Nitrogen stress-induced RNA 1: a 62-nucleotide RNA from Iningainema tapete. Lineage of the source: Bacteria > Cyanobacteriota > Cyanophyceae > Iningainema > Iningainema tapete. On this family, see Ionescu et al., J Mol Biol 2010: "Heterocyst-specific transcription of NsiR1, a non-coding RNA encoded in a tandem array of direct repeats in cyanobacteria". Pairs were carried over by alignment from the consensus structure. The match comes from Rfam's covariance-model search (55 bits). It is annotated as a small RNA.
RNA sequence: UGGUAGAUGCACCUUGAUCUUCAACUCCCCGUGUUGGCUAACCCCAUCUGGGGAGUUUUUUU
Numbered sequence: 001u002g003g004u005a006g007a008u009g010c011a012c013c014u015u016g017a018u019c020u021u022c023a024a025c026u027c028c029c030c031g032u033g034u035u036g037g038c039u040a041a042c043c044c045c046a047u048c049u050g051g052g053g054a055g056u057u058u059u060u061u062u
Stems, first nucleotide, its partner, number of pairs: 002013003026054006033048001035046003